[Rfam]
About this RNA
Rfam assigns this 113-nucleotide RNA from Podarcis lilfordi to the family "Small nucleolar RNA SNORD90". It scores 57 bits against the family's covariance model. Rfam links the family to the GO terms RNA processing and nucleolus. About the family: snoRNA HBII-295 belongs to the family of C/D snoRNAs. The organism belongs to Podarcis, within Eukaryota.

RNA sequence: AAAUACAGCACUACGUCUGGUGAUGAAGCUGCAUAGGGCAGAUUCUGAGCUGAGAGAUACAACCUCUCAGCACUGAUCCUCAAUUCAUGCAACCUGAAGACGUGCUGUUAAUU
Number, nucleotide and partner (000 for none) at each position: 001a000002a000003a000004u000005a000006c000007a000008g000009c000010a106011c000012u104013a103014c102015g101016u100017c099018u098019g000020g000021u000022g000023a000024u000025g000026a000027a000028g093029c000030u091031g090032c089033a088034u087035a000036g000037g081038g080039c000040a000041g077042a000043u000044u076045c075046u000047g073048a000049g071050c070051u069052g068053a067054g066055a065056g064057a000058u000059a000060c000061a000062a000063c000064c056065u055066c054067u053068c052069a051070g050071c049072a000073c047074u000075g045076a044077u041078c000079c000080u038081c037082a000083a000084u000085u000086c000087a034088u033089g032090c031091a030092a000093c028094c000095u000096g000097a000098a018099g017100a016101c015102g014103u013104g012105c000106u010107g000108u000109u000110a000111a000112u000113u000